The record is a 171-nucleotide RNA sequence from Anguilla anguilla, which matches "U2 spliceosomal RNA" in Rfam. The organism belongs to Anguilla, within Eukaryota. By type it is a spliceosomal small nuclear RNA.
RNA sequence: AAGGCUUCCUAACACUGUUGCCUGUUCUUAUCAGUUUAAUAUCUGAUCGUCCCCUAUCUGGGGACUACAUAUUAACGGAUUUUUGAGACUGGGAGUCGGAGAAGGAGCUUGCUCCGUCCGCUCCACGCAUCGACCCAGUAUUGCAGUACGUCCGGGAGCGGUGCGCCUCUA
Numbered sequence: 001a002a003g004g005c006u007u008c009c010u011a012a013c014a015c016u017g018u019u020g021c022c023u024g025u026u027c028u029u030a031u032c033a034g035u036u037u038a039a040u041a042u043c044u045g046a047u048c049g050u051c052c053c054c055u056a057u058c059u060g061g062g063g064a065c066u067a068c069a070u071a072u073u074a075a076c077g078g079a080u081u082u083u084u085g086a087g088a089c090u091g092g093g094a095g096u097c098g099g100a101g102a103a104g105g106a107g108c109u110u111g112c113u114c115c116g117u118c119c120g121c122u123c124c125a126c127g128c129a130u131c132g133a134c135c136c137a138g139u140a141u142u143g144c145a146g147u148a149c150g151u152c153c154g155g156g157a158g159c160g161g162u163g164c165g166c167c168u169c170u171a
Stems, first nucleotide, its partner, number of pairs: 030047005049065006092124005098118002104115004127164006134156003138152001